[Rfam]
RNA sequence: GAUUGCUAAGAUUAAGGUUUUAGCAACAAGGCUUGAAUAAUUCAAGAGAGUUUAAUUCCUUCACUUAGUUUAAAAAGUGUAAACACAUAAACAAUG
Numbered sequence: 001g002a003u004u005g006c007u008a009a010g011a012u013u014a015a016g017g018u019u020u021u022a023g024c025a026a027c028a029a030g031g032c033u034u035g036a037a038u039a040a041u042u043c044a045a046g047a048g049a050g051u052u053u054a055a056u057u058c059c060u061u062c063a064c065u066u067a068g069u070u071u072a073a074a075a076a077g078u079g080u081a082a083a084c085a086c087a088u089a090a091a092c093a094a095u096g
Stems, first nucleotide, its partner, number of pairs: 003026010062079004
Description: Shown here is a 96-nucleotide RNA, a member of the family "RT-9 RNA". It is annotated as a small RNA. The base pairs follow the family's consensus structure, which is taken from published work.